[Rfam]
RNA sequence: GGGGUGUGAUGAGUGGUCAAAACUCACAAGUAAUUGCGAGAGGGGUGUCCGCCCAAGCCUGGUUACGACACAGGGGCACUCCAGUUUGUACCAAUCUGAUCCC
Numbered sequence: 001g002g003g004g005u006g007u008g009a010u011g012a013g014u015g016g017u018c019a020a021a022a023c024u025c026a027c028a029a030g031u032a033a034u035u036g037c038g039a040g041a042g043g044g045g046u047g048u049c050c051g052c053c054c055a056a057g058c059c060u061g062g063u064u065a066c067g068a069c070a071c072a073g074g075g076g077c078a079c080u081c082c083a084g085u086u087u088g089u090a091c092c093a094a095u096c097u098g099a100u101c102c103c
Stems, first nucleotide, its partner, number of pairs: 001103004014093004023040003027036001042082006048075002060073001062071002
RNA: Small nucleolar RNA Z279/snoR105/snoR108